Rfam assigns this 121-nucleotide sequence from Alkaliphilus metalliredigens to the family "Molybdenum/Tungsten riboswitch aptamer (Moco RNA motif)". The family's consensus secondary structure is taken from published work. A search with the family's covariance model found it, with a score of 63 bits.
RNA sequence: AAUAAAAUUUAUUUCCGAGUUACUUUUCCUAAGGGCAAACUGUCUAAGGUUAGUGGCCGAUAGGUACCUAGAGAAAUUUUUGUGCCUCCCAACAUUGGAAAGGAAAUAUACUAGCUAUUUA
Numbered sequence: 001a002a003u004a005a006a007a008u009u010u011a012u013u014u015c016c017g018a019g020u021u022a023c024u025u026u027u028c029c030u031a032a033g034g035g036c037a038a039a040c041u042g043u044c045u046a047a048g049g050u051u052a053g054u055g056g057c058c059g060a061u062a063g064g065u066a067c068c069u070a071g072a073g074a075a076a077u078u079u080u081u082g083u084g085c086c087u088c089c090c091a092a093c094a095u096u097g098g099a100a101a102g103g104a105a106a107u108a109u110a111c112u113a114g115c116u117a118u119u120u121a
Stems, first nucleotide, its partner, number of pairs: 006112001011107006019057006028049002033045004062087006070079003088098002